[Rfam]
RNA sequence: ACGCGGAAAGGAGGUGGUCCGAAUAAUGGUGAUUCAUAGUCGGGCUAGCGAGGUGGUUGUCCGCUAAGUCGCGGACUGUUGUCUCGUGACGAGCGAAUCCGAGGCAACCACCGGGGCCCCGUGGCAGCCGGAGGGCGGGACAUCGUCCCGGCCAUGGUCCAUCCGGCCCGCCUGCACAGCAGGCGGAACGUCGCCCGGGGCCCUCUUCAU
Numbered sequence: 001a002c003g004c005g006g007a008a009a010g011g012a013g014g015u016g017g018u019c020c021g022a023a024u025a026a027u028g029g030u031g032a033u034u035c036a037u038a039g040u041c042g043g044g045c046u047a048g049c050g051a052g053g054u055g056g057u058u059g060u061c062c063g064c065u066a067a068g069u070c071g072c073g074g075a076c077u078g079u080u081g082u083c084u085c086g087u088g089a090c091g092a093g094c095g096a097a098u099c100c101g102a103g104g105c106a107a108c109c110a111c112c113g114g115g116g117c118c119c120c121g122u123g124g125c126a127g128c129c130g131g132a133g134g135g136c137g138g139g140a141c142a143u144c145g146u147c148c149c150g151g152c153c154a155u156g157g158u159c160c161a162u163c164c165g166g167c168c169c170g171c172c173u174g175c176a177c178a179g180c181a182g183g184c185g186g187a188a189c190g191u192c193g194c195c196c197g198g199g200g201c202c203c204u205c206u207u208c209a210u
Stems, first nucleotide, its partner, number of pairs: 013061006062095004068090004073084003113204009124194002128185001
RNA: Actinobacteria sRNA Ms_IGR-5